[Rfam]
RNA sequence: UGUAAUUGACAGAGGUAGCUUAUCUUCAAAUGAUAAGUUUGAGAAAUACUCUUAGAACCUGAUCUAGUUAAUACUAGCGGAGGAAGUUCAAAUUAUGGCAUCU
Numbered sequence: 001u002g003u004a005a006u007u008g009a010c011a012g013a014g015g016u017a018g019c020u021u022a023u024c025u026u027c028a029a030a031u032g033a034u035a036a037g038u039u040u041g042a043g044a045a046a047u048a049c050u051c052u053u054a055g056a057a058c059c060u061g062a063u064c065u066a067g068u069u070a071a072u073a074c075u076a077g078c079g080g081a082g083g084a085a086g087u088u089c090a091a092a093u094u095a096u097g098g099c100a101u102c103u
Stems, first nucleotide, its partner, number of pairs: 006091004011052004016046001017039008058083003064077004
The record is a 103-nucleotide RNA sequence from Spiroplasma syrphidicola, which matches "TPP riboswitch aptamer (THI element)" in Rfam. The organism belongs to Spiroplasma syrphidicola, within Bacteria. It scores 61 bits against the family's covariance model.